RNA sequence: AGCUUUGCGCAGUGGCAGUAUCGUAGCCAAUGAGGUUUAUCCGAGGCGCGAUUAUUGCUAAUUGAAAACUAAGAAACACAAAAUAAAUUUAUUCUUAAUUUAUUUAAAGACAACAAUAAUAAGCCCAUUAGAAGUGG
Numbered sequence: 001a002g003c004u005u006u007g008c009g010c011a012g013u014g015g016c017a018g019u020a021u022c023g024u025a026g027c028c029a030a031u032g033a034g035g036u037u038u039a040u041c042c043g044a045g046g047c048g049c050g051a052u053u054a055u056u057g058c059u060a061a062u063u064g065a066a067a068a069c070u071a072a073g074a075a076a077c078a079c080a081a082a083a084u085a086a087a088u089u090u091a092u093u094c095u096u097a098a099u100u101u102a103u104u105u106a107a108a109g110a111c112a113a114c115a116a117u118a119a120u121a122a123g124c125c126c127a128u129u130a131g132a133a134g135u136g137g
Base pairs, nucleotide, nucleotide: 020052021051022050023049024048026047027046028045034042035041087117088116089115090113093110094109095108096107098105125137126136127135
Source information:
The record is a 137-nucleotide RNA sequence from Mustela putorius, which matches "U4 spliceosomal RNA" in Rfam. Rfam classes the family as a spliceosomal small nuclear RNA. For this family Rfam cites "Cryo-EM Structure of a Pre-catalytic Human Spliceosome Primed for Activation" (Bertram et al., Cell, 2017). A search with the family's covariance model found it, with a score of 85 bits.